[Rfam]
RNA sequence: GGCUCUGUCUGAUAUGUUUGAUAUUAGGUUGUUUGAUUGCUGAAACCAACUCAAUAUCAAACAUAUUCUUACGGUGCC
Numbered sequence: 001g002g003c004u005c006u007g008u009c010u011g012a013u014a015u016g017u018u019u020g021a022u023a024u025u026a027g028g029u030u031g032u033u034u035g036a037u038u039g040c041u042g043a044a045a046c047c048a049a050c051u052c053a054a055u056a057u058c059a060a061a062c063a064u065a066u067u068c069u070u071a072c073g074g075u076g077c078c
Stems, first nucleotide, its partner, number of pairs: 005074004011067015027051005

The family of this 78-nucleotide RNA from Bucco capensis is "mir-190 microRNA precursor family". The family has 76 seed sequences and 1,667 matches in Rfam 15.1. The organism belongs to Bucco, within Eukaryota. The family's consensus secondary structure was predicted with RNAalifold.